[Rfam]
RNA sequence: GGCCUGUGAUUUCAACAAUUUGUCCGUACCAUCUGAUACAUCUGAUGAUUCAAAUUUGCUAAUGCGUCUCUGAGGCCC
Numbered sequence: 001g002g003c004c005u006g007u008g009a010u011u012u013c014a015a016c017a018a019u020u021u022g023u024c025c026g027u028a029c030c031a032u033c034u035g036a037u038a039c040a041u042c043u044g045a046u047g048a049u050u051c052a053a054a055u056u057u058g059c060u061a062a063u064g065c066g067u068c069u070c071u072g073a074g075g076c077c078c
Base pairs, nucleotide, nucleotide: 001077002076003075004074
This 78-nucleotide RNA sequence from Triticum turgidum belongs to the Rfam family "small nucleolar RNA snoR117". It is annotated as a C/D-box small nucleolar RNA. The family's consensus secondary structure was predicted with RNAalifold. On this family, see Chen and Wu, Nucleic Acids Res 2009: "Mining small RNA sequencing data: a new approach to identify small nucleolar RNAs in Arabidopsis".